[Rfam]
RNA sequence: CACUUGAGGGGGGGGUCCCUCAGCCCCAAUUGUGAGAGGGUGUAGGCCAGGCUGAGGGAGCCCACCAGUGGCCA
Numbered sequence: 001c002a003c004u005u006g007a008g009g010g011g012g013g014g015g016u017c018c019c020u021c022a023g024c025c026c027c028a029a030u031u032g033u034g035a036g037a038g039g040g041u042g043u044a045g046g047c048c049a050g051g052c053u054g055a056g057g058g059a060g061c062c063c064a065c066c067a068g069u070g071g072c073c074a
Stems, first nucleotide, its partner, number of pairs: 004071001006069001009066002012063003016059010030045005
RNA: mir-9193 microRNA precursor family